[Rfam]
RNA sequence: CCGUCCCACCCUUCGGAACGCUCUGCGUCGUCCGGGCCCGACGCCGCUAGGCUGGCCGGGUGCGCAUCUCGCGAGCGGGGUGCGCAAAGCCGACAGCCGUCGCAUCCCAGGGAGCAGUUCCUAUG
Numbered sequence: 001c002c003g004u005c006c007c008a009c010c011c012u013u014c015g016g017a018a019c020g021c022u023c024u025g026c027g028u029c030g031u032c033c034g035g036g037c038c039c040g041a042c043g044c045c046g047c048u049a050g051g052c053u054g055g056c057c058g059g060g061u062g063c064g065c066a067u068c069u070c071g072c073g074a075g076c077g078g079g080g081u082g083c084g085c086a087a088a089g090c091c092g093a094c095a096g097c098c099g100u101c102g103c104a105u106c107c108c109a110g111g112g113a114g115c116a117g118u119u120c121c122u123a124u125g
Stems, first nucleotide, its partner, number of pairs: 061086004066081004089103002092101003
Shown here is a 125-nucleotide RNA from Streptomyces sp. ICBB 8177, a member of the family "Streptomyces-metH RNA". The family's RNA type in Rfam is small RNA. NCBI's taxonomy places the organism under Bacteria, Actinomycetota, Actinomycetes, Kitasatosporales, Streptomyces. The family's consensus secondary structure is taken from published work.